Overview
This 223-nucleotide RNA sequence from Schmidtea mediterranea belongs to the Rfam family "Small nucleolar RNA U3". Its family is annotated with nucleolus and RNA processing in the Gene Ontology. The family is grouped with related families in Rfam's "U3 clan". It is one of the family's seed sequences. The organism belongs to Schmidtea, within Eukaryota. Rfam describes the family as follows. Small nucleolar RNAs (snoRNAs) are involved in the processing and modification of rRNA in the nucleolus. Rfam classes the family as a C/D-box small nucleolar RNA.
RNA sequence: AUGACCAGGCUUCAAAGGAUCUUGUCCGUUUAGUUUGUGUCGCCAGAAUGUUAUAAAAUUAUGACCCUGGGCAAAAGUUCGAUGACGUAUUGAUCAUAUUACCAUUUCGAGCGUGAACAAGGCAAAAGCUGUUGAGUCUUACUCAACUUGGCAUUUGUUUAUAAUGAUCGCUUAUUGAUUCUCAUUUGGUCAAUGAAGGAAUGGUAAUAUUUAUCAGAGGACU
Numbered sequence: 001a002u003g004a005c006c007a008g009g010c011u012u013c014a015a016a017g018g019a020u021c022u023u024g025u026c027c028g029u030u031u032a033g034u035u036u037g038u039g040u041c042g043c044c045a046g047a048a049u050g051u052u053a054u055a056a057a058a059u060u061a062u063g064a065c066c067c068u069g070g071g072c073a074a075a076a077g078u079u080c081g082a083u084g085a086c087g088u089a090u091u092g093a094u095c096a097u098a099u100u101a102c103c104a105u106u107u108c109g110a111g112c113g114u115g116a117a118c119a120a121g122g123c124a125a126a127a128g129c130u131g132u133u134g135a136g137u138c139u140u141a142c143u144c145a146a147c148u149u150g151g152c153a154u155u156u157g158u159u160u161a162u163a164a165u166g167a168u169c170g171c172u173u174a175u176u177g178a179u180u181c182u183c184a185u186u187u188g189g190u191c192a193a194u195g196a197a198g199g200a201a202u203g204g205u206a207a208u209a210u211u212u213a214u215c216a217g218a219g220g221a222c223u
Base pairs, nucleotide, nucleotide: 002042003041004040005039006037007036008035009034010033011032014030015029017027018026050065051064052063053062054061076223077222078221079220080219096210097209098208099207100206101205102204103203104202105201106200107199111171112170113169121159122158123157124156128152129151130150131147132146133145134144135143172197173196174194175193176192177191178190179189180188